The record is a 392-nucleotide RNA from Actinomadura verrucosospora, which matches "Bacterial RNase P class A" in Rfam. By type it is a ribozyme.
[Rfam]
RNA sequence: CGAGCCGGCCGGACGGCCGCGUCGGGGACCUGGUCCCCGUCGAGGAAAGUCCGGGCUCCACAGGGCAGGGUGGUCGGUAACGCCGACCCGGGGUGACCCGCGGGACAGUGCCACAGAAAACAGACCGCCACCGGUCCGCCGGUGGUAAGGGUGAAACGGUGAGGUAAGAGCUCACCAGCGCCCACGGUGACGUGGGCGGCUCGGUAAACCCCACCCGGAGCAAGGUCAAGAAGGGGCUCCGGCCCCGCGCAGGUGCCUGAGGGCUGCCCGCCCGAGCCUGCGGGUAGACCGCUGGAGGCCGCCGGCAACGGCGGCCCGAGAUGGAUGGCCGUCACCCGCCGCCCCGCAAGGGACGGCGGGCACAGAACCCGGCUUACAGGCCGACUCGUCCG
Numbered sequence: 001c002g003a004g005c006c007g008g009c010c011g012g013a014c015g016g017c018c019g020c021g022u023c024g025g026g027g028a029c030c031u032g033g034u035c036c037c038c039g040u041c042g043a044g045g046a047a048a049g050u051c052c053g054g055g056c057u058c059c060a061c062a063g064g065g066c067a068g069g070g071u072g073g074u075c076g077g078u079a080a081c082g083c084c085g086a087c088c089c090g091g092g093g094u095g096a097c098c099c100g101c102g103g104g105a106c107a108g109u110g111c112c113a114c115a116g117a118a119a120a121c122a123g124a125c126c127g128c129c130a131c132c133g134g135u136c137c138g139c140c141g142g143u144g145g146u147a148a149g150g151g152u153g154a155a156a157c158g159g160u161g162a163g164g165u166a167a168g169a170g171c172u173c174a175c176c177a178g179c180g181c182c183c184a185c186g187g188u189g190a191c192g193u194g195g196g197c198g199g200c201u202c203g204g205u206a207a208a209c210c211c212c213a214c215c216c217g218g219a220g221c222a223a224g225g226u227c228a229a230g231a232a233g234g235g236g237c238u239c240c241g242g243c244c245c246c247g248c249g250c251a252g253g254u255g256c257c258u259g260a261g262g263g264c265u266g267c268c269c270g271c272c273c274g275a276g277c278c279u280g281c282g283g284g285u286a287g288a289c290c291g292c293u294g295g296a297g298g299c300c301g302c303c304g305g306c307a308a309c310g311g312c313g314g315c316c317c318g319a320g321a322u323g324g325a326u327g328g329c330c331g332u333c334a335c336c337c338g339c340c341g342c343c344c345c346g347c348a349a350g351g352g353a354c355g356g357c358g359g360g361c362a363c364a365g366a367a368c369c370c371g372g373c374u375u376a377c378a379g380g381c382c383g384a385c386u387c388g389u390c391c392g
Base pairs, nucleotide, nucleotide: 001388002387003386004385006383007382008381009380010379011377012333013332014331015330016329017328018327020042021041023039024038025037026036027035028034047375048374049373051372052371053370054369055368056220057219058218059217063269064268065267066266068216069215070214071213072212073087074086075085076084077083088102089100090099091098092097103211104210108209109208110205111204112203125150126149127146128145129144130143131142132141133140134139158176159175160174161173162172163171178200179198180197181196182195183194184193185192186191224290225289226288227287249281250280251279252278253277254276261273262272263271264270297316298315299314300313301312302311303310304309